[Rfam]
Nucleotides: 156
Base pairs, nucleotide, nucleotide: 003154004153005152006151009145011144012143013142014141015140016139017138018137019136020135021132022131024129026128027127028126034122035121036120041117042116044114047111048110049109050108053104054103058099059098061097062096071087072086073085
Number, partner (000 for none) and nucleotide at each position: 001000u002000c003154u004153a005152g006151a007000a008000c009145u010000c011144g012143a013142g014141a015140u016139a017138u018137g019136g020135g021132u022131g023000a024129a025000c026128a027127c028126u029000g030000a031000a032000c033000a034122g035121u036120g037000u038000c039000c040000a041117g042116g043000c044114u045000g046000c047111a048110a049109g050108a051000c052000a053104a054103a055000u056000u057000c058099g059098g060000a061097c062096u063000u064000c065000u066000c067000c068000g069000u070000u071087g072086u073085u074000g075000c076000u077000a078000u079000a080000a081000u082000u083000u084000a085073g086072a087071c088000u089000u090000g091000a092000a093000a094000a095000u096062g097061g098059c099058c100000u101000u102000u103054u104053u105000a106000a107000a108050u109049c110048u111047u112000a113000a114044a115000c116042u117041c118000c119000a120036c121035a122034u123000g124000a125000a126028a127027g128026u129024u130000a131022u132021a133000g134000g135020c136019c137018u138017a139016u140015g141014u142013c143012u144011u145009a146000c147000c148000u149000a150000a151006u152005c153004u154003a155000u156000g
About this RNA
A member of the RNA family "MIR2912 microRNA precursor family" from Populus tomentosa, 156 nucleotides long. The base pairs follow the family's consensus structure, which was predicted with RNAalifold.